Shown here is a 135-nucleotide RNA sequence from Phyllostomus discolor, a member of the family "Small nucleolar RNA U109". The organism belongs to Phyllostomus, within Eukaryota. By type it is an H/ACA-box small nucleolar RNA.
[Rfam]
RNA sequence: UUGCAUGUGGAAAUAUGUCUGCUCCUCACUCCUUUGGGAGCAGAAACACACCCAUAACACACUCCAUUAAAAAAAGUUCUCAGGGCUGCCAACCUUACAGUAGAUGUUGAGUAGUAGUAUAUUUCUCCCACAUAA
Number, nucleotide and partner (000 for none) at each position: 001u000002u000003g062004c000005a000006u059007g058008u057009g000010g000011a000012a000013a000014u000015a000016u000017g000018u044019c043020u042021g041022c040023u039024c038025c037026u000027c000028a000029c000030u000031c000032c000033u000034u000035u000036g000037g025038g024039a023040g022041c021042a020043g019044a018045a000046a000047c000048a000049c000050a000051c000052c000053c000054a000055u000056a000057a008058c007059a006060c000061a000062c003063u000064c000065c000066a000067u000068u000069a000070a000071a000072a000073a000074a000075a126076g125077u000078u000079c000080u000081c000082a000083g000084g000085g115086c114087u000088g000089c111090c109091a108092a107093c106094c000095u104096u103097a000098c000099a000100g000101u000102a000103g096104a095105u000106g093107u092108u091109g090110a000111g089112u000113a000114g086115u085116a000117g000118u000119a000120u000121a000122u000123u000124u000125c076126u075127c000128c000129c000130a000131c000132a000133u000134a000135a000

Description
Rfam 15.1 lists 1,405 matches to the family in 622 species. For this family Rfam cites "A novel experimental approach for systematic identification of box H/ACA snoRNAs from eukaryotes" (Gu et al., Nucleic Acids Res, 2005). A search with the family's covariance model found it, with a score of 118 bits.